[Rfam]
RNA: c-di-AMP riboswitch aptamer (ydaO/yuaA leader)
Organism: Bacillus sp. FJAT-26390
RNA sequence: AACGGUACUUUACCGUAUUUCAAUGAUUUGUACGGGGGACGCAUUUUCGCUGAUGGCCUUAUUCAGACAAUCAGCUAGGGGUGAAUUUUGAAUACUCAUUUCGUUACCAGUCGGAAUGAUGUAGAAAAUAGGGUUUCCUCAACCCGAACCCGACAACUAACCUCGGAGGCAAUACAUUUUCUAGGA
Numbered sequence: 001a002a003c004g005g006u007a008c009u010u011u012a013c014c015g016u017a018u019u020u021c022a023a024u025g026a027u028u029u030g031u032a033c034g035g036g037g038g039a040c041g042c043a044u045u046u047u048c049g050c051u052g053a054u055g056g057c058c059u060u061a062u063u064c065a066g067a068c069a070a071u072c073a074g075c076u077a078g079g080g081g082u083g084a085a086u087u088u089u090g091a092a093u094a095c096u097c098a099u100u101u102c103g104u105u106a107c108c109a110g111u112c113g114g115a116a117u118g119a120u121g122u123a124g125a126a127a128a129u130a131g132g133g134u135u136u137c138c139u140c141a142a143c144c145c146g147a148a149c150c151c152g153a154c155a156a157c158u159a160a161c162c163u164c165g166g167a168g169g170c171a172a173u174a175c176a177u178u179u180u181c182u183a184g185g186a
Base pairs, nucleotide, nucleotide: 011171013169014168019030033165034164035163036162037161042078079151080150081149087128088127089126131145132144133143134142